The record is an 86-nucleotide RNA sequence from Hibiscus syriacus, which matches "MIR473 microRNA precursor family" in Rfam.
[Rfam]
RNA sequence: GUUCCUCACUCUCCCUCAAGGACUUCCAGAAAUGCUGGAGCACUGUCCCAACAAUGCUGGAAGUCUUUGGAGAGAGUGAAAAAAAA
Numbered sequence: 001g002u003u004c005c006u007c008a009c010u011c012u013c014c015c016u017c018a019a020g021g022a023c024u025u026c027c028a029g030a031a032a033u034g035c036u037g038g039a040g041c042a043c044u045g046u047c048c049c050a051a052c053a054a055u056g057c058u059g060g061a062a063g064u065c066u067u068u069g070g071a072g073a074g075a076g077u078g079a080a081a082a083a084a085a086a
Base pairs, nucleotide, nucleotide: 006079007078008077009076010075011074012073013072015070017069018068019067020066021065022064023063024062025061026060027059028058029057

Notes:
A reference for the family is Lu et al. (2005), "Novel and mechanical stress-responsive MicroRNAs in Populus trichocarpa that are absent from Arabidopsis", Plant Cell.